Rfam assigns this 140-nucleotide RNA sequence from Caproiciproducens sp. NJN-50 to the family "Ribosomal protein L10 leader". It scores 52 bits against the family's covariance model.
RNA sequence: ACAAUAGUUUUUCUUUAUUCAAAGACAGCAGGCGCUGUACGCUUAAUGGAUUUUCCAGCCUGCCGAGAAUAAGGUUCGAUAUGCAUUUGUGUGUUGAAAGCCUUUUCUGCGGCAGCGGAAAAGGCUUUUUACGUUCUGCG
Numbered sequence: 001a002c003a004a005u006a007g008u009u010u011u012u013c014u015u016u017a018u019u020c021a022a023a024g025a026c027a028g029c030a031g032g033c034g035c036u037g038u039a040c041g042c043u044u045a046a047u048g049g050a051u052u053u054u055c056c057a058g059c060c061u062g063c064c065g066a067g068a069a070u071a072a073g074g075u076u077c078g079a080u081a082u083g084c085a086u087u088u089g090u091g092u093g094u095u096g097a098a099a100g101c102c103u104u105u106u107c108u109g110c111g112g113c114a115g116c117g118g119a120a121a122a123g124g125c126u127u128u129u130u131a132c133g134u135u136c137u138g139c140g
Base pairs, nucleotide, nucleotide: 028063029062030061031060032059033058034042035041100125101124102123103122104121105120106119107118108117109116

Rfam describes the family as follows. This family is a putative r-protein leader autoregulatory structure found in B. subtilis and other low-GC Gram-positive bacteria. It is located in the 5' untranslated regions of mRNAs encoding ribosomal proteins L10 and L12 (rplJ-rplL). A Rho-independent transcription terminator structure that is probably involved in regulation is included at the 3' end.
Lineage of the source: Bacteria > Bacillati > Clostridia > Acutalibacteraceae > Caproiciproducens.